[Rfam]
RNA sequence: AGGCCGGUAGCUCAGCCUGGUAGAGCACUCGACUUUUAACAAAGUCGGGCUUUUACUCGACCGGAAGGUUAUCGAGUGGUCGCGGGUUCGAACCCCGUCCGGCCUA
Numbered sequence: 001a002g003g004c005c006g007g008u009a010g011c012u013c014a015g016c017c018u019g020g021u022a023g024a025g026c027a028c029u030c031g032a033c034u035u036u037u038a039a040c041a042a043a044g045u046c047g048g049g050c051u052u053u054u055a056c057u058c059g060a061c062c063g064g065a066a067g068g069u070u071a072u073c074g075a076g077u078g079g080u081c082g083c084g085g086g087u088u089c090g091a092a093c094c095c096c097g098u099c100c101g102g103c104c105u106a
Base pairs, nucleotide, nucleotide: 001105002104003103004102005101006100007099010026011025012024013023028076029075030074031073032072082098083097084096085095086094
Overview: This 106-nucleotide RNA sequence from archaeon D22 belongs to the Rfam family "tRNA". The family's consensus secondary structure is taken from published work.